[Rfam]
RNA sequence: AAGACUGUACUUUCAGGGAUCAUUUCUAUAGUUUAUUACUAGAGAAGUUUCUCUGAAGGUGUAGAGCACCGGAAACCACGAGGAGGAAGCGCAGUGUUCUCUCCUGAGCGUGAAGCUGGCUUUUGGUAUCGCUUCAUUUGCGACUGCCUUUUGCCAUUGAUGAUCGUUCUUUUCUUCCUUUGGGAGAAUAGGAGGGAGAGAACGCAGUCUGGGUGGC
Numbered sequence: 001a002a003g004a005c006u007g008u009a010c011u012u013u014c015a016g017g018g019a020u021c022a023u024u025u026c027u028a029u030a031g032u033u034u035a036u037u038a039c040u041a042g043a044g045a046a047g048u049u050u051c052u053c054u055g056a057a058g059g060u061g062u063a064g065a066g067c068a069c070c071g072g073a074a075a076c077c078a079c080g081a082g083g084a085g086g087a088a089g090c091g092c093a094g095u096g097u098u099c100u101c102u103c104c105u106g107a108g109c110g111u112g113a114a115g116c117u118g119g120c121u122u123u124u125g126g127u128a129u130c131g132c133u134u135c136a137u138u139u140g141c142g143a144c145u146g147c148c149u150u151u152u153g154c155c156a157u158u159g160a161u162g163a164u165c166g167u168u169c170u171u172u173u174c175u176u177c178c179u180u181u182g183g184g185a186g187a188a189u190a191g192g193a194g195g196g197a198g199a200g201a202a203c204g205c206a207g208u209c210u211g212g213g214u215g216g217c
Base pairs, nucleotide, nucleotide: 002040003039006035007034009032010031011030015027016026017025018024049065050064054061076216077215078214079213094205095204096203097202098201099200100199101198102197103196104195105194108167109166110165118155119154120153125148126147127146129143130142131141132140170191171190172188173187174186175185176184177183178182
This 217-nucleotide RNA from Rhinopithecus roxellana belongs to the Rfam family "Small nucleolar RNA U3". Taxonomically the source falls in Rhinopithecus (Eukaryota, Vertebrata, Teleostomi, Tetrapoda). Rfam describes the family as follows. Small nucleolar RNAs (snoRNAs) are involved in the processing and modification of rRNA in the nucleolus.